This 75-nucleotide RNA from Senna tora belongs to the Rfam family "Small nucleolar RNA SNORD18". It scores 45 bits against the family's covariance model. The family's RNA type in Rfam is C/D-box small nucleolar RNA.
RNA sequence: GAGAUAUGAUGAUUUAUAUAUUGGUCCGUGUUUCUGAAUCACCGUGACCGACAAUUCUUACCAAUUUCUGAUCUC
Numbered sequence: 001g002a003g004a005u006a007u008g009a010u011g012a013u014u015u016a017u018a019u020a021u022u023g024g025u026c027c028g029u030g031u032u033u034c035u036g037a038a039u040c041a042c043c044g045u046g047a048c049c050g051a052c053a054a055u056u057c058u059u060a061c062c063a064a065u066u067u068c069u070g071a072u073c074u075c
Stems, first nucleotide, its partner, number of pairs: 001075004
The family has 16 seed sequences and 2,622 matches in Rfam 15.1. The literature on the family includes a 2001 paper in EMBO J by Giorgi et al., "Release of U18 snoRNA from its host intron requires interaction of Nop1p with the Rnt1p endonuclease".